[Rfam]
RNA sequence: CAGCGGGAAACCUCUCCCCACCGAGAGGCAGCUAUCUGGAAGGAUAGACUAU
Numbered sequence: 001c002a003g004c005g006g007g008a009a010a011c012c013u014c015u016c017c018c019c020a021c022c023g024a025g026a027g028g029c030a031g032c033u034a035u036c037u038g039g040a041a042g043g044a045u046a047g048a049c050u051a052u
Base pairs, nucleotide, nucleotide: 011028012027013026014025015024016023032047033046034045035044036043037042
Dot-bracket structure: ..........((((((......))))))...((((((....)))))).....